[Rfam]
The record is a 99-nucleotide sequence from Romboutsia hominis, which matches "SAM riboswitch aptamer (S box leader)" in Rfam. Rfam's curators write: The SAM riboswitch is found upstream of a number of genes which code for proteins involved in methionine or cysteine biosynthesis in Gram-positive bacteria. A search with the family's covariance model found it, with a score of 88 bits.
RNA sequence: UUCUUAUCAAGAGUGGCGGAGGGACUGGCCCGACGAAGCCCAGCAACCAGUAUUAUUAUACGGGUGCUAAAUCCUGCAGCAUAAGCUGAAAGAUGAGAG
Numbered sequence: 001u002u003c004u005u006a007u008c009a010a011g012a013g014u015g016g017c018g019g020a021g022g023g024a025c026u027g028g029c030c031c032g033a034c035g036a037a038g039c040c041c042a043g044c045a046a047c048c049a050g051u052a053u054u055a056u057u058a059u060a061c062g063g064g065u066g067c068u069a070a071a072u073c074c075u076g077c078a079g080c081a082u083a084a085g086c087u088g089a090a091a092g093a094u095g096a097g098a099g
Stems, first nucleotide, its partner, number of pairs: 001099008013041001015040003021031003025076001027074002042068004047064002050059003072091001077088004